[Rfam]
RNA sequence: CCGGUCUCUACCUGACCGGACUCUACCUGACCGGUCUCUACCUGACCGGUCAGGUAGAGUCCGGUCAGGUAGAGUCCGGUCAGGUAGAGACCGGUCAGGUAGAGACCGGUCAG
Number, nucleotide and partner (000 for none) at each position: 001c000002c000003g000004g000005u000006c000007u000008c102009u101010a100011c099012c098013u097014g096015a000016c000017c000018g092019g091020a000021c089022u088023c087024u086025a085026c084027c083028u082029g081030a080031c079032c078033g077034g076035u000036c074037u073038c072039u071040a070041c069042c068043u067044g066045a065046c064047c063048g062049g000050u000051c000052a000053g000054g000055u000056a000057g000058a000059g000060u000061c000062c048063g047064g046065u045066c044067a043068g042069g041070u040071a039072g038073a037074g036075u000076c034077c033078g032079g031080u030081c029082a028083g027084g026085u025086a024087g023088a022089g021090a000091c019092c018093g000094g000095u000096c014097a013098g012099g011100u010101a009102g008103a000104g000105a000106c000107c000108g000109g000110u000111c000112a000113g000
RNA: mraW RNA